[Rfam]
RNA: SucA RNA motif
Nucleotides: 081
Base pairs, nucleotide, nucleotide: 002081003080004079006034007033008032009031010030015025016024017023018022036044046076047075048074054070055069056068057067058066059065060064
Number, partner (000 for none) and nucleotide at each position: 001000u002081c003080g004079c005000g006034u007033c008032c009031g010030c011000c012000a013000a014000a015025c016024g017023g018022u019000u020000c021000a022018g023017c024016c025015g026000u027000g028000u029000c030010g031009c032008g033007g034006a035000a036044g037000g038000u039000g040000a041000u042000u043000c044036c045000a046076a047075c048074c049000c050000g051000a052000c053000a054070g055069u056068u057067u058066c059065c060064u061000g062000c063000a064060g065059g066058g067057a068056a069055a070054c071000g072000g073000a074048g075047g076046u077000c078000a079004g080003c081002g